[Rfam]
RNA sequence: CAUGCGGUAUGCGACUGGCGAGAGAAGCGUGGAAUCAACCACGGGGAAGCAUACAUUCGGCAGAUCUACCGUUCGCCUGGGUAAAGUAU
Numbered sequence: 001c002a003u004g005c006g007g008u009a010u011g012c013g014a015c016u017g018g019c020g021a022g023a024g025a026a027g028c029g030u031g032g033a034a035u036c037a038a039c040c041a042c043g044g045g046g047a048a049g050c051a052u053a054c055a056u057u058c059g060g061c062a063g064a065u066c067u068a069c070c071g072u073u074c075g076c077c078u079g080g081g082u083a084a085a086g087u088a089u
Stems, first nucleotide, its partner, number of pairs: 004057001007054006015046002017077005029042004067083004